[Rfam]
RNA sequence: UUGUUGCAGGUGAGAAUUGGAUGGAACUGAACCAUCUUUUUCUCCAUGGUUAAUGAGGGUUCAGUUUCCUCCAAUAUCUCACAUUCAACCA
Numbered sequence: 001u002u003g004u005u006g007c008a009g010g011u012g013a014g015a016a017u018u019g020g021a022u023g024g025a026a027c028u029g030a031a032c033c034a035u036c037u038u039u040u041u042c043u044c045c046a047u048g049g050u051u052a053a054u055g056a057g058g059g060u061u062c063a064g065u066u067u068c069c070u071c072c073a074a075u076a077u078c079u080c081a082c083a084u085u086c087a088a089c090c091a
Stems, first nucleotide, its partner, number of pairs: 004088003008084001011081004016075006023068008032059002
Overview
A member of the RNA family "MIR2275 microRNA precursor family" from Macleaya cordata, 91 nucleotides long. The source organism's lineage runs through Eukaryota, Streptophyta, Embryophyta, Mesangiospermae and Macleaya. The family's consensus secondary structure was predicted with RNAalifold.